[Rfam]
RNA sequence: UUCUUUCAUGGGGGAUCAGAUUUGGGUACCACCCCAGUACCGACCCAUUUCCAGCGGCCUAUGUAUUUCGUACAUUCCUGCCAGCCAACAUGAAUAUCACCCA
Numbered sequence: 001u002u003c004u005u006u007c008a009u010g011g012g013g014g015a016u017c018a019g020a021u022u023u024g025g026g027u028a029c030c031a032c033c034c035c036a037g038u039a040c041c042g043a044c045c046c047a048u049u050u051c052c053a054g055c056g057g058c059c060u061a062u063g064u065a066u067u068u069c070g071u072a073c074a075u076u077c078c079u080g081c082c083a084g085c086c087a088a089c090a091u092g093a094a095u096a097u098c099a100c101c102c103a
Stems, first nucleotide, its partner, number of pairs: 005094006012086002017080003022036001024034004037055002061075005
RNA: Mitochondrial DNA control region secondary structure A